RNA sequence: UGUGAAUCUAGUGGAAACAUUUCUGCCCAAAUCAGUCUACUGAAGCCAGUGUGGAAGUGCUUCUGCUAUAUAUUUA
Number, nucleotide and partner (000 for none) at each position: 001u076002g075003u000004g073005a000006a071007u070008c000009u068010a067011g066012u065013g064014g063015a062016a061017a000018c059019a058020u057021u056022u055023c054024u053025g052026c051027c000028c000029a050030a000031a000032u049033c000034a000035g000036u000037c000038u000039a000040c000041u000042g000043a000044a000045g000046c000047c000048a000049g032050u029051g026052u025053g024054g023055a022056a021057g020058u019059g018060c000061u016062u015063c014064u013065g012066c011067u010068a009069u000070a007071u006072a000073u004074u000075u002076a001
This 76-nucleotide RNA from Vombatus ursinus belongs to the Rfam family "mir-147 microRNA precursor family". For this family Rfam cites "Hidden layers of human small RNAs" (Kawaji et al., BMC Genomics, 2008). The base pairs follow the family's consensus structure, which was predicted with RNAalifold. Its family is annotated with RISC complex and miRNA-mediated post-transcriptional gene silencing in the Gene Ontology.